[Rfam]
RNA sequence: AGGUAGAAUCUGUUAAGCUCAGGAGGGAUAGCGCCACAUAUAACACAAUUCAUUCGUAUUGGCGCUAUCUAUCCUGAGUUUCACGGCUUCUUCUU
Number, nucleotide and partner (000 for none) at each position: 001a000002g000003g000004u000005a000006g000007a000008a000009u000010c086011u000012g000013u000014u000015a000016a080017g079018c078019u077020c076021a075022g074023g073024a072025g000026g070027g069028a068029u067030a066031g065032c064033g063034c062035c061036a000037c000038a000039u000040a000041u000042a000043a000044c000045a000046c000047a000048a000049u000050u000051c000052a000053u000054u000055c000056g000057u000058a000059u000060u000061g035062g034063c033064g032065c031066u030067a029068u028069c027070u026071a000072u024073c023074c022075u021076g020077a019078g018079u017080u016081u000082c000083a000084c000085g000086g010087c000088u000089u000090c000091u000092u000093c000094u000095u000

Rfam assigns this 95-nucleotide RNA from Arachis hypogaea to the family "MIR390 microRNA precursor family". Rfam 15.1 lists 649 matches to the family in 206 species. The organism belongs to Arachis, within Eukaryota. The base pairs follow the family's consensus structure, which was predicted with WAR.